[Rfam]
RNA sequence: GGCGAUAAACGGCGCAGUCAGUAUAUAUAGCGGACCCGGGGGCGGUACCCGGCGCCUCCACCAUCAGCAGCCGCGCACAGCAUGGAUUAUGGCGGCUGUUGAUGAUGGGGGCGAAACAGGAUCGACGUGUGUAGAACGCUGUAAGCCUUUCGCCCGGCAUGGUUCCGCCGUGAUGGGCCACCUUUGAUAAAUGCCAACGACAACGACGUCGAGUUUGCUGUUGCCGCGUAA
Numbered sequence: 001g002g003c004g005a006u007a008a009a010c011g012g013c014g015c016a017g018u019c020a021g022u023a024u025a026u027a028u029a030g031c032g033g034a035c036c037c038g039g040g041g042g043c044g045g046u047a048c049c050c051g052g053c054g055c056c057u058c059c060a061c062c063a064u065c066a067g068c069a070g071c072c073g074c075g076c077a078c079a080g081c082a083u084g085g086a087u088u089a090u091g092g093c094g095g096c097u098g099u100u101g102a103u104g105a106u107g108g109g110g111g112c113g114a115a116a117c118a119g120g121a122u123c124g125a126c127g128u129g130u131g132u133a134g135a136a137c138g139c140u141g142u143a144a145g146c147c148u149u150u151c152g153c154c155c156g157g158c159a160u161g162g163u164u165c166c167g168c169c170g171u172g173a174u175g176g177g178c179c180a181c182c183u184u185u186g187a188u189a190a191a192u193g194c195c196a197a198c199g200a201c202a203a204c205g206a207c208g209u210c211g212a213g214u215u216u217g218c219u220g221u222u223g224c225c226g227c228g229u230a231a
Stems, first nucleotide, its partner, number of pairs: 001154005014142004026131003030128003036052005053113007155170004

The record is a 231-nucleotide sequence from Eilatimonas milleporae, which matches "permuted transfer-messenger RNA" in Rfam. It scores 133 bits against the family's covariance model. Bacterial tmRNA, also known as 10Sa RNA or SsrA, is named for its dual tRNA and mRNA-like properties. Its role is to liberate the mRNA from a stalled ribosome. To accomplish this part of the tmRNA is used as a reading frame that ends in a translation stop signal. The broken mRNA is replaced in the ribosome by the tmRNA and translation of the tmRNA leads to addition of a proteolysis tag to the incomplete protein enabling recognition by a protease. Lineage of the source: Bacteria > Pseudomonadota > Alphaproteobacteria > Kordiimonadaceae > Eilatimonas. Pairs were carried over by alignment from the consensus structure, which is taken from published work.